[Rfam]
RNA sequence: UUUGCACACAAAACCCAAAGUUCAUAAUUUACAUUAAUAUUAUGAUCUUGUCUGGUGUGCAGAUAUCGAGUCGGUACCUUGUCGCCUUUCAGAUUGCUGCUGUGCAUCUCAAAGUGAAAUCAAGGUUCUACAGAC
Number, nucleotide and partner (000 for none) at each position: 001u000002u062003u061004g060005c059006a058007c057008a056009c055010a000011a000012a000013a000014c000015c000016c000017a000018a000019a000020g047021u000022u045023c044024a043025u042026a041027a040028u039029u000030u000031a000032c000033a000034u000035u000036a000037a000038u000039a028040u027041u026042a025043u024044g023045a022046u000047c020048u000049u000050g000051u000052c000053u000054g000055g009056u008057g007058u006059g005060c004061a003062g002063a000064u000065a000066u000067c000068g000069a000070g000071u000072c000073g000074g128075u000076a126077c125078c124079u123080u122081g000082u000083c000084g000085c000086c114087u113088u112089u111090c000091a109092g108093a107094u106095u000096g105097c104098u000099g000100c000101u000102g000103u000104g097105c096106a094107u093108c092109u091110c000111a089112a088113a087114g086115u000116g000117a000118a000119a000120u000121c000122a080123a079124g078125g077126u076127u000128c074129u000130a000131c000132a000133g000134a000135c000

This 135-nucleotide RNA from Synaphobranchus kaupii belongs to the Rfam family "Small nucleolar RNA SNORA68". Rfam classes the family as an H/ACA-box small nucleolar RNA. U68 is a member of the H/ACA class of small nucleolar RNAs (snoRNAs) which act as guides in the the modification of uridines to pseudouridines. A search with the family's covariance model found it, with a score of 71 bits. The source organism's lineage runs through Eukaryota, Metazoa, Chordata, Elopocephala and Synaphobranchus. The literature on the family includes a 1997 paper in Genes Dev by Ganot et al., "The family of box ACA small nucleolar RNAs is defined by an evolutionarily conserved secondary structure and ubiquitous sequence elements essential for RNA accumulation".